[Rfam]
RNA sequence: GGAAAUCCGUUGGGGUGCCUGGGAAACCGGGCUGAGAGGCGCAGGCCAACCCAUCGAACCUGAUCCGACUAACAUCGGCGUAGGGAACGGAGCUCGGCCUUGG
Numbered sequence: 001g002g003a004a005a006u007c008c009g010u011u012g013g014g015g016u017g018c019c020u021g022g023g024a025a026a027c028c029g030g031g032c033u034g035a036g037a038g039g040c041g042c043a044g045g046c047c048a049a050c051c052c053a054u055c056g057a058a059c060c061u062g063a064u065c066c067g068a069c070u071a072a073c074a075u076c077g078g079c080g081u082a083g084g085g086a087a088c089g090g091a092g093c094u095c096g097g098c099c100u101u102g103g
Stems, first nucleotide, its partner, number of pairs: 006091005011053004017032005039046002059084004065078004

The record is a 103-nucleotide RNA from Actibacterium atlanticum, which matches "TPP riboswitch aptamer (THI element)" in Rfam.
NCBI's taxonomy places the organism under Bacteria, Pseudomonadati, Rhodobacterales, Roseobacteraceae, Actibacterium.
The family's consensus secondary structure is taken from published work.